The family of this 54-nucleotide RNA sequence from Gadus morhua is "UnaL2 LINE 3' element". Rfam classes the family as a cis-regulatory element. It scores 64 bits against the family's covariance model. The base pairs follow the family's consensus structure, which is taken from published work. Gene Ontology term of the family: transposition, RNA-mediated. The organism belongs to Gadus, within Eukaryota.
RNA sequence: AUUGUUUCAUAUUGUAAGUCGCUUUGGAUAAAAGCGUCUGCUAAAUGCCCUGAA
Numbered sequence: 001a002u003u004g005u006u007u008c009a010u011a012u013u014g015u016a017a018g019u020c021g022c023u024u025u026g027g028a029u030a031a032a033a034g035c036g037u038c039u040g041c042u043a044a045a046u047g048c049c050c051u052g053a054a
Base pairs, nucleotide, nucleotide: 013043014041015040016039020036021035022034023033024032025031